Description
Shown here is a 72-nucleotide RNA sequence from Janthinobacterium agaricidamnosum, a member of the family "tRNA". The family's RNA type in Rfam is transfer RNA.
RNA sequence: GUCGCCAUCGUACAAUGGAUAGUACAAGGUCCUCCUAAGACUUAAAUGCAGGUUCGAUUCCUGCUGGCGACA
Numbered sequence: 001g002u003c004g005c006c007a008u009c010g011u012a013c014a015a016u017g018g019a020u021a022g023u024a025c026a027a028g029g030u031c032c033u034c035c036u037a038a039g040a041c042u043u044a045a046a047u048g049c050a051g052g053u054u055c056g057a058u059u060c061c062u063g064c065u066g067g068c069g070a071c072a
Base pairs, nucleotide, nucleotide: 001071002070003069004068005067006066007065010025011024012023013022027043028042029041030040031039048064049063050062051061052060

About this RNA
Pairs were carried over by alignment from the consensus structure, which is taken from published work.